[Rfam]
RNA sequence: CGAAAAACUUUUGGGGCUGGCUUGGCAGCUGGACCCAACGUUGUUGGGUCUGGCAACCAAGUCAGGUCCAAAACACUUUCAAAAGGAGCCACCAACGUUGAGUAAUGUUGCUUAGCAAGACCCAAUAGUUUUAGAU
Numbered sequence: 001c002g003a004a005a006a007a008c009u010u011u012u013g014g015g016g017c018u019g020g021c022u023u024g025g026c027a028g029c030u031g032g033a034c035c036c037a038a039c040g041u042u043g044u045u046g047g048g049u050c051u052g053g054c055a056a057c058c059a060a061g062u063c064a065g066g067u068c069c070a071a072a073a074c075a076c077u078u079u080c081a082a083a084a085g086g087a088g089c090c091a092c093c094a095a096c097g098u099u100g101a102g103u104a105a106u107g108u109u110g111c112u113u114a115g116c117a118a119g120a121c122c123c124a125a126u127a128g129u130u131u132u133a134g135a136u
Stems, first nucleotide, its partner, number of pairs: 001134001003132003011125005017119002020116003024112006031051009056103002

Shown here is a 136-nucleotide RNA from Populus deltoides, a member of the family "MIR474 microRNA precursor family". A search with the family's covariance model found it, with a score of 51 bits. The source organism's lineage runs through Eukaryota, Viridiplantae, Mesangiospermae, eudicotyledons and Populus. Gene Ontology terms of the family: miRNA-mediated post-transcriptional gene silencing and RISC complex.